[Rfam]
RNA sequence: AGCUUUUUGAAUCCGUACUGAGAUUUUGUAAGAAACCAACCCAUUAAGGCUGGUCAGACUCCCAAGAUAAGUAAAGUU
Number, nucleotide and partner (000 for none) at each position: 001a000002g077003c076004u075005u074006u073007u000008u071009g000010a000011a068012u067013c066014c000015g000016u064017a000018c000019u000020g061021a060022g059023a000024u058025u057026u056027u000028g054029u053030a000031a000032g000033a000034a000035a000036c000037c000038a000039a000040c000041c000042c000043a000044u000045u000046a000047a000048g000049g000050c000051u000052g000053g029054u028055c000056a026057g025058a024059c022060u021061c020062c000063c000064a016065a000066g013067a012068u011069a000070a000071g008072u000073a006074a005075a004076g003077u002078u000
The family of this 78-nucleotide RNA from Schistosoma margrebowiei is "mir-3492 microRNA precursor family".
It scores 46 bits against the family's covariance model.
The source organism's lineage runs through Eukaryota, Bilateria, Spiralia, Neodermata and Schistosoma.